[Rfam]
RNA sequence: GUUGAGCUUCGUAAUGAGGGCUUGUAAUCCAAAUAGGGGCAUUAUAUGGUGAAUGUUGGGUUGCUCCAAAUGGUAAGGCUUGGUGGGCUAAUCUCCAACUUGCCCUGUCCAAGCAUAGAGGUGGGUCACGUGGCCCAAGUGUAAACAUGGGUUGUUGGACUCCUUAAGUGGGGCCGACCGCGUGAGGCUGGUUUCACAGAGCAACGAAGGAGGGCGGAUCGCGUGAGGCUAGUUUCAUAGAUCAACGAAUAGCUCCCGCUCUGUGCAGUGGAAGGAUAACAGGUCUUUGUCCUUCAAGUCCAACAAAUUCUUGAUGGGAUGCUCCAAUUAAACCACCACUUUU
Numbered sequence: 001g002u003u004g005a006g007c008u009u010c011g012u013a014a015u016g017a018g019g020g021c022u023u024g025u026a027a028u029c030c031a032a033a034u035a036g037g038g039g040c041a042u043u044a045u046a047u048g049g050u051g052a053a054u055g056u057u058g059g060g061u062u063g064c065u066c067c068a069a070a071u072g073g074u075a076a077g078g079c080u081u082g083g084u085g086g087g088c089u090a091a092u093c094u095c096c097a098a099c100u101u102g103c104c105c106u107g108u109c110c111a112a113g114c115a116u117a118g119a120g121g122u123g124g125g126u127c128a129c130g131u132g133g134c135c136c137a138a139g140u141g142u143a144a145a146c147a148u149g150g151g152u153u154g155u156u157g158g159a160c161u162c163c164u165u166a167a168g169u170g171g172g173g174c175c176g177a178c179c180g181c182g183u184g185a186g187g188c189u190g191g192u193u194u195c196a197c198a199g200a201g202c203a204a205c206g207a208a209g210g211a212g213g214g215c216g217g218a219u220c221g222c223g224u225g226a227g228g229c230u231a232g233u234u235u236c237a238u239a240g241a242u243c244a245a246c247g248a249a250u251a252g253c254u255c256c257c258g259c260u261c262u263g264u265g266c267a268g269u270g271g272a273a274g275g276a277u278a279a280c281a282g283g284u285c286u287u288u289g290u291c292c293u294u295c296a297a298g299u300c301c302a303a304c305a306a307a308u309u310c311u312u313g314a315u316g317g318g319a320u321g322c323u324c325c326a327a328u329u330a331a332a333c334c335a336c337c338a339c340u341u342u343u
Base pairs, nucleotide, nucleotide: 001040002039003038004023005022006021007020008019009018028037029036044341047338048337049336050335051334054330055329056327057326058325059323060322061321064318066317067316068315072311073310075308077300078299079298080297081296082295083294085292086291087290089289090288098284099283100282101281102280104275105274108272109271110270111269113266114265115264116263117262118261119260120259123162124161125160126159127158130155131154132153133152134151135150136149137148139146140145163209164208210257212255213254214253215252222247223246224245229240230239231238
Dot-bracket structure: (((((((((........))))))....((......)))))...(..(((((..((((((((..(.(((...((.(.(((((((.(((.((.......(((((.((..((((.((((((((..(((((..((((((((.((....)).))))))))..)))))((...........................................))(.((((......(((....(((......)))....)))....)))).).))))))))..)))).))....)))))...))))).))))))).......).))...))))..))).))).))...)))))..)..